[Rfam]
RNA sequence: AGUUCUGCAUAAAAUUGUCUUUUUCCGCUUUGCUGCUGAUAAUUAUAAACAUGUCAACAGCAAAGUGAAAAGGUCUCCUUUAUGAGAACUUG
Numbered sequence: 001a002g003u004u005c006u007g008c009a010u011a012a013a014a015u016u017g018u019c020u021u022u023u024u025c026c027g028c029u030u031u032g033c034u035g036c037u038g039a040u041a042a043u044u045a046u047a048a049a050c051a052u053g054u055c056a057a058c059a060g061c062a063a064a065g066u067g068a069a070a071a072g073g074u075c076u077c078c079u080u081u082a083u084g085a086g087a088a089c090u091u092g
Base pairs, nucleotide, nucleotide: 008084009083010082012080013079017075019073020072021071022070023069024068025067028065029064030063033060034059035058037056038055039052040051
Record summary: Shown here is a 92-nucleotide RNA from Manduca sexta, a member of the family "mir-316 microRNA precursor family". Gene Ontology terms of the family: RISC complex and miRNA-mediated post-transcriptional gene silencing. The base pairs follow the family's consensus structure, which was predicted with RNAalifold. Rfam's curators put it in the seed alignment.